[Rfam]
RNA sequence: UGGCGCCCAACGUGGGGCCUGGGCACAAGGGACGAAUGUGAGGAACAGACACAAAGAAAGGCCGGCGAUACAAGUGAGCAAAGCGUCCUUCAGCCGCCGCGGGAACCUGCCGCGUUGGAACCGAAGGUAAGUGAAAGCGUCUGAACAUGGGGCAAGAACUCAGCCAGCAUCAGAUUUAUGUGAAACAAUUAAAAGAGGCUUUAAAGGCAUGAGGAGUAAAAGUUAAAGGCUAUGACUUGCUUAAAUUUUUUGACUUCAUAAAGGACACCUGUCCUU
Numbered sequence: 001u002g003g004c005g006c007c008c009a010a011c012g013u014g015g016g017g018c019c020u021g022g023g024c025a026c027a028a029g030g031g032a033c034g035a036a037u038g039u040g041a042g043g044a045a046c047a048g049a050c051a052c053a054a055a056g057a058a059a060g061g062c063c064g065g066c067g068a069u070a071c072a073a074g075u076g077a078g079c080a081a082a083g084c085g086u087c088c089u090u091c092a093g094c095c096g097c098c099g100c101g102g103g104a105a106c107c108u109g110c111c112g113c114g115u116u117g118g119a120a121c122c123g124a125a126g127g128u129a130a131g132u133g134a135a136a137g138c139g140u141c142u143g144a145a146c147a148u149g150g151g152g153c154a155a156g157a158a159c160u161c162a163g164c165c166a167g168c169a170u171c172a173g174a175u176u177u178a179u180g181u182g183a184a185a186c187a188a189u190u191a192a193a194a195g196a197g198g199c200u201u202u203a204a205a206g207g208c209a210u211g212a213g214g215a216g217u218a219a220a221a222g223u224u225a226a227a228g229g230c231u232a233u234g235a236c237u238u239g240c241u242u243a244a245a246u247u248u249u250u251u252g253a254c255u256u257c258a259u260a261a262a263g264g265a266c267a268c269c270u271g272u273c274c275u276u
Stems, first nucleotide, its partner, number of pairs: 006031003012026003037049001039047001086129001088127001089125002094118002098114005137153002140151004160203001162201001163199003210252008220238006261276006